[Rfam]
RNA sequence: CGUUAAGGUGAUGAAGAUUUAAUCGGAAUCUUAAUAUGUCGAUCAAAAAAUCAUACUACAAUUAUCUGAUGAACG
Numbered sequence: 001c002g003u004u005a006a007g008g009u010g011a012u013g014a015a016g017a018u019u020u021a022a023u024c025g026g027a028a029u030c031u032u033a034a035u036a037u038g039u040c041g042a043u044c045a046a047a048a049a050a051u052c053a054u055a056c057u058a059c060a061a062u063u064a065u066c067u068g069a070u071g072a073a074c075g
Stems, first nucleotide, its partner, number of pairs: 001075004006070001

Overview: A member of the RNA family "Small nucleolar RNA Z155" from Papaver somniferum, 75 nucleotides long. Its family is annotated with nucleolus and RNA processing in the Gene Ontology. On this family, see Chen et al., Nucleic Acids Res 2003: "The high diversity of snoRNAs in plants: identification and comparative study of 120 snoRNA genes from Oryza sativa". Lineage of the source: Eukaryota > Embryophyta > Spermatophyta > Papaveraceae > Papaver. The base pairs follow the family's consensus structure. Rfam classes the family as a C/D-box small nucleolar RNA.